This 311-nucleotide RNA from Laodelphax striatellus belongs to the Rfam family "Nuclear RNase P". The organism belongs to Laodelphax, within Eukaryota. A search with the family's covariance model found it, with a score of 145 bits.
RNA sequence: GCCAGCAUGAAGCCUGCAUUUGGGACUCACAACGGAGUGCUUGUCACUAAUAUAUUAGUCCCGGGAAGGUCUGAGACCAAGGUCGAUUUCACGCUCUAGCAGGGCGGCUCCCGAAAAGGGGGCGCAGGGGACCAGAAAAAGCAGGGGCGGAAACUGAAUUUUGUUUUUCAAAGCCAGCGCCGCUUUUCUAACAGCCGAGGCGUUCCCGCUUGUGUUGGAAAAACCCUGUGGCCGGCGCUUUUAGUGCAAUCUGCAGGCCAGCUAACUAAUUAUAAACGCUGGAACUCAAUUCAGACUAUUCUCAUGCUGGC
Numbered sequence: 001g002c003c004a005g006c007a008u009g010a011a012g013c014c015u016g017c018a019u020u021u022g023g024g025a026c027u028c029a030c031a032a033c034g035g036a037g038u039g040c041u042u043g044u045c046a047c048u049a050a051u052a053u054a055u056u057a058g059u060c061c062c063g064g065g066a067a068g069g070u071c072u073g074a075g076a077c078c079a080a081g082g083u084c085g086a087u088u089u090c091a092c093g094c095u096c097u098a099g100c101a102g103g104g105c106g107g108c109u110c111c112c113g114a115a116a117a118g119g120g121g122g123c124g125c126a127g128g129g130g131a132c133c134a135g136a137a138a139a140a141g142c143a144g145g146g147g148c149g150g151a152a153a154c155u156g157a158a159u160u161u162u163g164u165u166u167u168u169c170a171a172a173g174c175c176a177g178c179g180c181c182g183c184u185u186u187u188c189u190a191a192c193a194g195c196c197g198a199g200g201c202g203u204u205c206c207c208g209c210u211u212g213u214g215u216u217g218g219a220a221a222a223a224c225c226c227u228g229u230g231g232c233c234g235g236c237g238c239u240u241u242u243a244g245u246g247c248a249a250u251c252u253g254c255a256g257g258c259c260a261g262c263u264a265a266c267u268a269a270u271u272a273u274a275a276a277c278g279c280u281g282g283a284a285c286u287c288a289a290u291u292c293a294g295a296c297u298a299u300u301c302u303c304a305u306g307c308u309g310g311c
Base pairs, nucleotide, nucleotide: 001311002310003309004308008304009303010302013257014256015255016254017253018252022062023061024060025059026058036048037047038046039045071294072293073292074291075290081233082232083231084230092106093105094104095103096102107123108122109121110120111119112118124229125228126227127226128225129224142214143213258282259281260280261279262278